[Rfam]
This 114-nucleotide RNA sequence belongs to the Rfam family "drum RNA". The sequence is in the family's curated seed alignment. About the family: Firmicutes, Bacteroidetes (1 example), Proteobacteria (2 examples), Spirochaetes (2 examples). Rfam classes the family as a small RNA.
RNA sequence: AAGCGUUGAAGCAUAAUAGAGUACCGGCAAGCCCCGUUAUGCUGAGCUUUCGAGAGGGGUUGUGCAAUGAAACCUCAAGCCGGAGUAGGUGGAAACCGAACGAAAAUGCUCAGA
Numbered sequence: 001a002a003g004c005g006u007u008g009a010a011g012c013a014u015a016a017u018a019g020a021g022u023a024c025c026g027g028c029a030a031g032c033c034c035c036g037u038u039a040u041g042c043u044g045a046g047c048u049u050u051c052g053a054g055a056g057g058g059g060u061u062g063u064g065c066a067a068u069g070a071a072a073c074c075u076c077a078a079g080c081c082g083g084a085g086u087a088g089g090u091g092g093a094a095a096c097c098g099a100a101c102g103a104a105a106a107u108g109c110u111c112a113g114a
Stems, first nucleotide, its partner, number of pairs: 001049004011042007019034001021032002024083004064109003088097003